[Rfam]
RNA: Glycine riboswitch aptamer
Organism: Yimella sp. RIT 621
RNA sequence: CGACACCGGGCGGGAGAGUCCCCCGCCGCAGUGGUGGUGGCGCCGAAGGUGCAAUUCUCCCCAGAACCUCUCAGGCCACCGGACCGCCCGGACGAG
Dot-bracket structure: .....((((((((......((.(((((.....))))).)).(((((..(.(...(.......)....).))).))).......)))))))).....